A member of the RNA family "Lysine riboswitch aptamer" from Desulfitobacterium metallireducens, 182 nucleotides long.
[Rfam]
RNA sequence: UGGUGAGGUAGAGGCGCGGCUUUCAACAGUCUUUAGUAGAGUUUGAGAUGCGGAGAAACUAAGGAGAAGGGUAGGUCGCCGAAGUUAAUAAUAUUCUCAGUAUUAUUAGCUGGGUCUGUAGUUAAGAGCUACAGGACUGUCUCAAUAAACUACCCAGUUUAUUGAGUUGAGCUAUCUCAUUU
Numbered sequence: 001u002g003g004u005g006a007g008g009u010a011g012a013g014g015c016g017c018g019g020c021u022u023u024c025a026a027c028a029g030u031c032u033u034u035a036g037u038a039g040a041g042u043u044u045g046a047g048a049u050g051c052g053g054a055g056a057a058a059c060u061a062a063g064g065a066g067a068a069g070g071g072u073a074g075g076u077c078g079c080c081g082a083a084g085u086u087a088a089u090a091a092u093a094u095u096c097u098c099a100g101u102a103u104u105a106u107u108a109g110c111u112g113g114g115u116c117u118g119u120a121g122u123u124a125a126g127a128g129c130u131a132c133a134g135g136a137c138u139g140u141c142u143c144a145a146u147a148a149a150c151u152a153c154c155c156a157g158u159u160u161a162u163u164g165a166g167u168u169g170a171g172c173u174a175u176c177u178c179a180u181u182u
Stems, first nucleotide, its partner, number of pairs: 006177006016079007024071001031064007083111012112138002115135008141166009
The match comes from Rfam's covariance-model search (109 bits).